The family of this 121-nucleotide RNA from Glycine max is "MIR4372 microRNA precursor family". Taxonomically the source falls in Glycine subgen. Soja (Eukaryota, Euphyllophyta, Magnoliopsida, rosids). Its Rfam clan is "MIR1520 microRNA precursor clan". Pairs were carried over by alignment from the consensus structure, which was predicted with RNAalifold.
RNA sequence: ACGUUGAUCAUCAUAUGUCAUAAUUUUACUGGACGUUAAUUUCAUGUAUUUAAUUAACGUCAAUCUAUACACCUAAUUAACGUCAACCUCCAAUAAAAUCGUGACAUGUGACGGUCAAUGU
Numbered sequence: 001a002c003g004u005u006g007a008u009c010a011u012c013a014u015a016u017g018u019c020a021u022a023a024u025u026u027u028a029c030u031g032g033a034c035g036u037u038a039a040u041u042u043c044a045u046g047u048a049u050u051u052a053a054u055u056a057a058c059g060u061c062a063a064u065c066u067a068u069a070c071a072c073c074u075a076a077u078u079a080a081c082g083u084c085a086a087c088c089u090c091c092a093a094u095a096a097a098a099u100c101g102u103g104a105c106a107u108g109u110g111a112c113g114g115u116c117a118a119u120g121u
Base pairs, nucleotide, nucleotide: 002120003119004118005117006116007115008114011111012110013109014108015107016106017105018104019103020102023099024098025097026096027095028094030092031091032090033089036086037085